[Rfam]
RNA sequence: AAUAGGAGGAUGACAAAUCAGAUUUUUCUUCUUGAUUUUCAGCUUUUUCUUCCUAAAAACUAAAAAUACUAAAAUUUAGGAGUAUAAAUUUGAUUUGUCAUUCUCCUAUU
Numbered sequence: 001a002a003u004a005g006g007a008g009g010a011u012g013a014c015a016a017a018u019c020a021g022a023u024u025u026u027u028c029u030u031c032u033u034g035a036u037u038u039u040c041a042g043c044u045u046u047u048u049c050u051u052c053c054u055a056a057a058a059a060c061u062a063a064a065a066a067u068a069c070u071a072a073a074a075u076u077u078a079g080g081a082g083u084a085u086a087a088a089u090u091u092g093a094u095u096u097g098u099c100a101u102u103c104u105c106c107u108a109u110u
Stems, first nucleotide, its partner, number of pairs: 001110025027084001029082007037074003041070002045066004
RNA: MIR7504 microRNA precursor family